[Rfam]
Source information: A member of the RNA family "c-di-GMP-I riboswitch aptamer" from Bacillus sp. FJAT-49736, 87 nucleotides long. The base pairs follow the family's consensus structure, which is taken from published work. From the family's description: GEMM was predicted in a large-scale screen for bacterial structured RNA regulatory elements. On this family, see Weinberg et al., Nucleic Acids Res 2007: "Identification of 22 candidate structured RNAs in bacteria using the CMfinder comparative genomics pipeline".
RNA sequence: AAGUUGAAAAGGCAAACUUAUCGAAAGAUAAGGACGCAAAGCUACGAGUCUAAAAUCCACUUGGAUAAAGAUAGUCGGGUUGCCAGG
Numbered sequence: 001a002a003g004u005u006g007a008a009a010a011g012g013c014a015a016a017c018u019u020a021u022c023g024a025a026a027g028a029u030a031a032g033g034a035c036g037c038a039a040a041g042c043u044a045c046g047a048g049u050c051u052a053a054a055a056u057c058c059a060c061u062u063g064g065a066u067a068a069a070g071a072u073a074g075u076c077g078g079g080u081u082g083c084c085a086g087g
Base pairs, nucleotide, nucleotide: 012037013036017032018031019030020029021028022027040081041080042079043078045077046076047075048072049071050070055066056065057064058063